This 102-nucleotide sequence from Rummeliibacillus stabekisii belongs to the Rfam family "Purine riboswitch aptamer". Gene Ontology term of the family: purine nucleobase biosynthetic process. Its Rfam clan is "Purine riboswitches". The match comes from Rfam's covariance-model search (86 bits).

RNA sequence: AAAAUUAUAUAAGUUGUUUUUCAUAUAAUCGUGAGAAUAUGGCUCACAAGUUUCUACCUGUUUACCGUAAAUAAACUGGCUAUGGAAAGCUUUGAAAAGAUA
Numbered sequence: 001a002a003a004a005u006u007a008u009a010u011a012a013g014u015u016g017u018u019u020u021u022c023a024u025a026u027a028a029u030c031g032u033g034a035g036a037a038u039a040u041g042g043c044u045c046a047c048a049a050g051u052u053u054c055u056a057c058c059u060g061u062u063u064a065c066c067g068u069a070a071a072u073a074a075a076c077u078g079g080c081u082a083u084g085g086a087a088a089g090c091u092u093u094g095a096a097a098a099g100a101u102a
Stems, first nucleotide, its partner, number of pairs: 018088008029049001031047005058078001060076005